[Rfam]
RNA sequence: GGAACCUUUUAAUUCAGUCCGGAGAGGCUGGCAAAGGGAUGCGAUUUCAUAUGGUGAUGAUUGAUGCGCUUUCGCCCCUCUCUCGGCGAAAGCGCAUUUUUGG
Numbered sequence: 001g002g003a004a005c006c007u008u009u010u011a012a013u014u015c016a017g018u019c020c021g022g023a024g025a026g027g028c029u030g031g032c033a034a035a036g037g038g039a040u041g042c043g044a045u046u047u048c049a050u051a052u053g054g055u056g057a058u059g060a061u062u063g064a065u066g067c068g069c070u071u072u073c074g075c076c077c078c079u080c081u082c083u084c085g086g087c088g089a090a091a092g093c094g095c096a097u098u099u100u101u102g103g
Stems, first nucleotide, its partner, number of pairs: 005037005014031006047060004063098014
RNA: PyrR binding site
Organism: Paludifilum halophilum